[Rfam]
RNA sequence: CCUGCUGUGCGACCAGCAGUUGCCUACCCGGACAUGCGUGAUUGGUAACGAUCGGGUAUGAAGCUCCGGGGACAAUGUACUUUUCGAAAGACGGCUCACCCUGGUGACAGGGAAGGAUUCGACACUGCCAGCAGUCGCGCGGUGUGAAGG
Numbered sequence: 001c002c003u004g005c006u007g008u009g010c011g012a013c014c015a016g017c018a019g020u021u022g023c024c025u026a027c028c029c030g031g032a033c034a035u036g037c038g039u040g041a042u043u044g045g046u047a048a049c050g051a052u053c054g055g056g057u058a059u060g061a062a063g064c065u066c067c068g069g070g071g072a073c074a075a076u077g078u079a080c081u082u083u084u085c086g087a088a089a090g091a092c093g094g095c096u097c098a099c100c101c102u103g104g105u106g107a108c109a110g111g112g113a114a115g116g117a118u119u120c121g122a123c124a125c126u127g128c129c130a131g132c133a134g135u136c137g138c139g140c141g142g143u144g145u146g147a148a149g150g
Stems, first nucleotide, its partner, number of pairs: 002019006028069005033060005039054006084091002093120002096117001102109002124143005
Rfam assigns this 150-nucleotide sequence from Caballeronia sp. SBC1 to the family "Group II catalytic intron D1-D4-7". The match comes from Rfam's covariance-model search (100 bits). About the family: Group II introns are found in rRNA, tRNA and mRNA of organelles in fungi, plants and protists, and also in mRNA in bacteria. NCBI's taxonomy places the organism under Bacteria, Pseudomonadati, Pseudomonadota, Burkholderiales, Caballeronia. On this family, see Lehmann and Schmidt, Crit Rev Biochem Mol Biol 2003: "Group II introns: structure and catalytic versatility of large natural ribozymes".